[Rfam]
RNA: Pseudomonas sRNA CrcZ
Organism: Pseudomonas sp. M30-35
RNA sequence: ACAACAACAAUAACAAGCAGCAAACAAGACAAUAAAAAUAAAACGUAACGACUCCAGUACAAUAAAAACAAUAGGACAGGAGGCGCAGAAAACUGAUUCUUUUGGGUAGAGGAUAUGCUUUUGGGGCUUGCCCCGCGACCAGGUAGAGAACAACAAAACUGCUCUUAGGCAGCACCUGAACUGGUUGGGUCACGGAAUGAUCAUCGCACUGUCAGCAUCCAAAGAAAUCCGUUUGCUAUUAACUCUCAACUUGAGAGGUUUUCCUGAGGUCUUUGACCAGAAGGAACGGGCAAUUCAACAAAAACAACAAGCCCGAAAUAAUAAUAAAAAUAAAGCACGCAACAAUUUAAGAGGGAGCUUCGGCUCCCUCAGUGCUUUCUGGGUUUCCAGAAUGAUUCACCUCUC
Numbered sequence: 001a002c003a004a005c006a007a008c009a010a011u012a013a014c015a016a017g018c019a020g021c022a023a024a025c026a027a028g029a030c031a032a033u034a035a036a037a038a039u040a041a042a043a044c045g046u047a048a049c050g051a052c053u054c055c056a057g058u059a060c061a062a063u064a065a066a067a068a069c070a071a072u073a074g075g076a077c078a079g080g081a082g083g084c085g086c087a088g089a090a091a092a093c094u095g096a097u098u099c100u101u102u103u104g105g106g107u108a109g110a111g112g113a114u115a116u117g118c119u120u121u122u123g124g125g126g127c128u129u130g131c132c133c134c135g136c137g138a139c140c141a142g143g144u145a146g147a148g149a150a151c152a153a154c155a156a157a158a159c160u161g162c163u164c165u166u167a168g169g170c171a172g173c174a175c176c177u178g179a180a181c182u183g184g185u186u187g188g189g190u191c192a193c194g195g196a197a198u199g200a201u202c203a204u205c206g207c208a209c210u211g212u213c214a215g216c217a218u219c220c221a222a223a224g225a226a227a228u229c230c231g232u233u234u235g236c237u238a239u240u241a242a243c244u245c246u247c248a249a250c251u252u253g254a255g256a257g258g259u260u261u262u263c264c265u266g267a268g269g270u271c272u273u274u275g276a277c278c279a280g281a282a283g284g285a286a287c288g289g290g291c292a293a294u295u296c297a298a299c300a301a302a303a304a305c306a307a308c309a310a311g312c313c314c315g316a317a318a319u320a321a322u323a324a325u326a327a328a329a330a331u332a333a334a335g336c337a338c339g340c341a342a343c344a345a346u347u348u349a350a351g352a353g354g355g356a357g358c359u360u361c362g363g364c365u366c367c368c369u370c371a372g373u374g375c376u377u378u379c380u381g382g383g384u385u386u387c388c389a390g391a392a393u394g395a396u397u398c399a400c401c402u403c404u405c
Base pairs, nucleotide, nucleotide: 049085050084052082053081054080055079100224101223102222103221104220116217117216118215136187137186138185139184140183141182142181159172160171161170162169163168242259243257244256245255246254283386284385285384287382288314289313290312291311333377334376335375336374350373351370352369353368354367355366356365357364358363